The family of this 381-nucleotide part of an RNA from Thermoplasmatales archaeon E-plasma is "Archaeal large subunit ribosomal RNA". Pairs were carried over by alignment from the consensus structure, which is taken from published work. Lineage of the source: Archaea > Methanobacteriati > Thermoplasmatota > Thermoplasmata > Thermoplasmatales. The match comes from Rfam's covariance-model search (2733 bits). Clan: LSU clan.

RNA sequence: AAAAGUAGCAGAAAAGAAUUGUGAGAAUCAAUUCCGCCGAAAGGGCUAAGGGUUCCUUGGCAAUGUUCGUCAGCCGAGGGUUAGUCGGUCCUAAGGUCACCCCUAAAGGGAAGUGACCGAAAGGGAAAACGGUUAAUAUUCCGUUACCUCCGAUGUUUUGCCAAAGAAGGAUGGUUCUGGAUAUUGGGAGUACGGUAGUCUACGUAUUGGAAAGAAUAAAUGGAUGGAGAGUUGUAAUAACGAGAAGUUUAUGAAAUCUUUUCAGUCCCCAUUAGGGGAUUUUCGAAAUUCCUGGAUCCUGUGAAAGACUUCUUUGGGCCAAGUUGGAGUCCGUACCAAGAACCGACACAGGUGCCCCUGGAUGAGAAGUCCAAGGCGUUU
Numbered sequence: 001a002a003a004a005g006u007a008g009c010a011g012a013a014a015a016g017a018a019u020u021g022u023g024a025g026a027a028u029c030a031a032u033u034c035c036g037c038c039g040a041a042a043g044g045g046c047u048a049a050g051g052g053u054u055c056c057u058u059g060g061c062a063a064u065g066u067u068c069g070u071c072a073g074c075c076g077a078g079g080g081u082u083a084g085u086c087g088g089u090c091c092u093a094a095g096g097u098c099a100c101c102c103c104u105a106a107a108g109g110g111a112a113g114u115g116a117c118c119g120a121a122a123g124g125g126a127a128a129a130c131g132g133u134u135a136a137u138a139u140u141c142c143g144u145u146a147c148c149u150c151c152g153a154u155g156u157u158u159u160g161c162c163a164a165a166g167a168a169g170g171a172u173g174g175u176u177c178u179g180g181a182u183a184u185u186g187g188g189a190g191u192a193c194g195g196u197a198g199u200c201u202a203c204g205u206a207u208u209g210g211a212a213a214g215a216a217u218a219a220a221u222g223g224a225u226g227g228a229g230a231g232u233u234g235u236a237a238u239a240a241c242g243a244g245a246a247g248u249u250u251a252u253g254a255a256a257u258c259u260u261u262u263c264a265g266u267c268c269c270c271a272u273u274a275g276g277g278g279a280u281u282u283u284c285g286a287a288a289u290u291c292c293u294g295g296a297u298c299c300u301g302u303g304a305a306a307g308a309c310u311u312c313u314u315u316g317g318g319c320c321a322a323g324u325u326g327g328a329g330u331c332c333g334u335a336c337c338a339a340g341a342a343c344c345g346a347c348a349c350a351g352g353u354g355c356c357c358c359u360g361g362a363u364g365a366g367a368a369g370u371c372c373a374a375g376g377c378g379u380u381u
Stems, first nucleotide, its partner, number of pairs: 016034006035378004043357004050337002055079006064072002086333003090124002095118006102110002128145005148329006167311003173298005179292003184286005189208006212260004221251005231241003270275001343352002359373004